[Rfam]
RNA sequence: CCAGGGGCUGACGCCCCUGGCUAACAACUACCGCACCUCCGGUGCU
Numbered sequence: 001c002c003a004g005g006g007g008c009u010g011a012c013g014c015c016c017c018u019g020g021c022u023a024a025c026a027a028c029u030a031c032c033g034c035a036c037c038u039c040c041g042g043u044g045c046u
Base pairs, nucleotide, nucleotide: 001020002019003018004017005016006015007014008013033045034044035043036042037041